Rfam assigns this 129-nucleotide RNA sequence from Alicyclobacillus sp. SO9 to the family "c-di-AMP riboswitch aptamer (ydaO/yuaA leader)". Lineage of the source: Bacteria > Bacillati > Bacilli > Alicyclobacillaceae > Alicyclobacillus. A search with the family's covariance model found it, with a score of 91 bits. The family has 106 seed sequences and 7,607 matches in Rfam 15.1.
[Rfam]
RNA sequence: GUUAUAUACACGCCUAAUCCUGUGUGGAGCGGAGGAACCAUUUAUCGGGGUGAAUCCAAUUUGGACGGGUGAUGAUUCUUGCCACCCGAACCCGUCAGCUAACUUCGUCGGCGUUGCAGGAGCGGUUUU
Numbered sequence: 001g002u003u004a005u006a007u008a009c010a011c012g013c014c015u016a017a018u019c020c021u022g023u024g025u026g027g028a029g030c031g032g033a034g035g036a037a038c039c040a041u042u043u044a045u046c047g048g049g050g051u052g053a054a055u056c057c058a059a060u061u062u063g064g065a066c067g068g069g070u071g072a073u074g075a076u077u078c079u080u081g082c083c084a085c086c087c088g089a090a091c092c093c094g095u096c097a098g099c100u101a102a103c104u105u106c107g108u109c110g111g112c113g114u115u116g117c118a119g120g121a122g123c124g125g126u127u128u129u
Base pairs, nucleotide, nucleotide: 011113012112013111014110018028019027020026029108030107031106032105033104034103039047048093049092050091056064057063058062067087068086069085070084
Dot-bracket structure: ..........((((...(((.....)))((((((....(.......)(((.....(((...)))..((((.............))))...))).........)))))).))))................
The base pairs follow the family's consensus structure.